[Rfam]
RNA sequence: AUUUAUAAUUAGCAAACCAUCGGAAACGGUGGGACGCAAAGCCAGGGGGCUAAUGUUCUCAAUACCGUGGAAACAGCCAUAGUAGUGAAACUAUGCCAGCCCAGCCGCCGGA
Number, nucleotide and partner (000 for none) at each position: 001a000002u000003u000004u000005a000006u000007a000008a000009u000010u000011a000012g037013c036014a000015a000016a000017c032018c031019a030020u029021c028022g027023g000024a000025a000026a000027c022028g021029g020030u019031g018032g017033g000034a000035c000036g013037c012038a000039a000040a000041g105042c104043c000044a000045g102046g101047g100048g097049g096050c095051u000052a000053a000054u000055g091056u090057u089058c000059u000060c000061a000062a000063u000064a000065c000066c000067g000068u000069g000070g000071a000072a000073a000074c000075a000076g000077c000078c000079a000080u000081a000082g000083u000084a000085g000086u000087g000088a000089a057090a056091c055092u000093a000094u000095g050096c049097c048098a000099g000100c047101c046102c045103a000104g042105c041106c000107g000108c000109c000110g000111g000112a000
RNA: c-di-GMP-I riboswitch aptamer
Organism: Parablautia intestinalis